[Rfam]
RNA: Lysine riboswitch aptamer
Organism: Natronogracilivirga saccharolytica
RNA sequence: CUUGAUUGAAGAGGUGCAAGCAUCAGGCAGCCGUCGCAAGGUGCCGGUCCGGAAACGGACAUAACCUGCGACCGACGGUGAGGGGAUGACUUGCCGAAGCAAUCCGGGAAAACGGCUUUCCGGUUUGUUGGGUUUUCGGGCUGAAUCCCGGUUCCUGUCACACUGUUUCAGUGCGAAACAGCUUGUGGAGUGCUUCUGGCCCU
Numbered sequence: 001c002u003u004g005a006u007u008g009a010a011g012a013g014g015u016g017c018a019a020g021c022a023u024c025a026g027g028c029a030g031c032c033g034u035c036g037c038a039a040g041g042u043g044c045c046g047g048u049c050c051g052g053a054a055a056c057g058g059a060c061a062u063a064a065c066c067u068g069c070g071a072c073c074g075a076c077g078g079u080g081a082g083g084g085g086a087u088g089a090c091u092u093g094c095c096g097a098a099g100c101a102a103u104c105c106g107g108g109a110a111a112a113c114g115g116c117u118u119u120c121c122g123g124u125u126u127g128u129u130g131g132g133u134u135u136u137c138g139g140g141c142u143g144a145a146u147c148c149c150g151g152u153u154c155c156u157g158u159c160a161c162a163c164u165g166u167u168u169c170a171g172u173g174c175g176a177a178a179c180a181g182c183u184u185g186u187g188g189a190g191u192g193c194u195u196c197u198g199g200c201c202c203u
Base pairs, nucleotide, nucleotide: 006198008196009195010194011193016094017093018092019091020090021088022087023086024085030079031078032077033076034075035074036073098129099128100127101126102125104123105122106121107120108119109118130156131155132154136151137150138149139148140147158188159187160186161185162184